mir-17 microRNA precursor family: a 68-nucleotide RNA from Pan troglodytes. A reference for the family is Lagos-Quintana et al. (2001), "Identification of novel genes coding for small expressed RNAs", Science. The sequence is in the family's curated seed alignment. Rfam describes the family as follows. This family represents the microRNA (miRNA) precursor mir-17, family, which includes mir-20, mir-91, and mir-103. miRNAs are transcribed as ~70nt precursors (modelled here) and subsequently processed by the Dicer enzyme to give a ~22nt product. Its family is annotated with RISC complex and miRNA-mediated post-transcriptional gene silencing in the Gene Ontology. NCBI's taxonomy places the organism under Eukaryota, Metazoa, Boreoeutheria, Haplorrhini, Pan.
RNA sequence: AGUACCAAAGUGCUCAUAGUGCAGGUAGUUUUGGCAUGACUCUACUGUAGUAUGGGCACUUCCAGUAC
Numbered sequence: 001a002g003u004a005c006c007a008a009a010g011u012g013c014u015c016a017u018a019g020u021g022c023a024g025g026u027a028g029u030u031u032u033g034g035c036a037u038g039a040c041u042c043u044a045c046u047g048u049a050g051u052a053u054g055g056g057c058a059c060u061u062c063c064a065g066u067a068c
Stems, first nucleotide, its partner, number of pairs: 002068001004066002008061011020049003024046005